[Rfam]
Background
This 316-nucleotide RNA sequence from Quercus lobata belongs to the Rfam family "Plant signal recognition particle RNA". Gene Ontology terms of the family: signal recognition particle, endoplasmic reticulum targeting and SRP-dependent cotranslational protein targeting to membrane, signal sequence recognition. Taxonomically the source falls in Quercus (Eukaryota, Streptophytina, Embryophyta, Mesangiospermae). Rfam classes the family as a non-coding RNA gene. It scores 200 bits against the family's covariance model.
RNA sequence: GCCGAGCUCUAUAAUGUACUAAUGUGAGCUUGUAACCCAAGUGGGGGCAUAAAUGUGAUGGGACUUUGGUCCAAACUAGUUGGUCGAAUUUCAACGAGGCUUUCAAUUUGGCCUGCCCGUUCCAAGCGAAGAGAUGAGCCAAUGGACUUGAGCUAAGGCUCUGGGUUCAGUGGUUCCUAAAGAUGAGGGCAAUGCAUGAGGCUGGUUUCAUAGAGCAGCGACAACCUCCCACUCUUUGCAGUGUAAGGAUAAUGGGCCAGUGCCAAUUGGAUCCAACAUGGUCCAUUGGGUUGAACCCAACUGAACCAUCACUUUU
Numbered sequence: 001g002c003c004g005a006g007c008u009c010u011a012u013a014a015u016g017u018a019c020u021a022a023u024g025u026g027a028g029c030u031u032g033u034a035a036c037c038c039a040a041g042u043g044g045g046g047g048c049a050u051a052a053a054u055g056u057g058a059u060g061g062g063a064c065u066u067u068g069g070u071c072c073a074a075a076c077u078a079g080u081u082g083g084u085c086g087a088a089u090u091u092c093a094a095c096g097a098g099g100c101u102u103u104c105a106a107u108u109u110g111g112c113c114u115g116c117c118c119g120u121u122c123c124a125a126g127c128g129a130a131g132a133g134a135u136g137a138g139c140c141a142a143u144g145g146a147c148u149u150g151a152g153c154u155a156a157g158g159c160u161c162u163g164g165g166u167u168c169a170g171u172g173g174u175u176c177c178u179a180a181a182g183a184u185g186a187g188g189g190c191a192a193u194g195c196a197u198g199a200g201g202c203u204g205g206u207u208u209c210a211u212a213g214a215g216c217a218g219c220g221a222c223a224a225c226c227u228c229c230c231a232c233u234c235u236u237u238g239c240a241g242u243g244u245a246a247g248g249a250u251a252a253u254g255g256g257c258c259a260g261u262g263c264c265a266a267u268u269g270g271a272u273c274c275a276a277c278a279u280g281g282u283c284c285a286u287u288g289g290g291u292u293g294a295a296c297c298c299a300a301c302u303g304a305a306c307c308a309u310c311a312c313u314u315u316u
Base pairs, nucleotide, nucleotide: 001048002047003046004031005030006029007028008027009026036045037044038043051316052315053314055312056311057310058309059308060307061306064303066300067299068298069296070295072293073292074291076289077288078287079286080285082283083282084281085280086274088272089271090270091269093267098264099263101262108260109259110258111257112256113255114254115253117248118247120246121245123243124242126239127238128237129236130235131234132233133232136176137175138174139173140172141171143169144168145167146166147165148164149163150162151160152159153158177182185228186227187226188225195220197218202213203212204211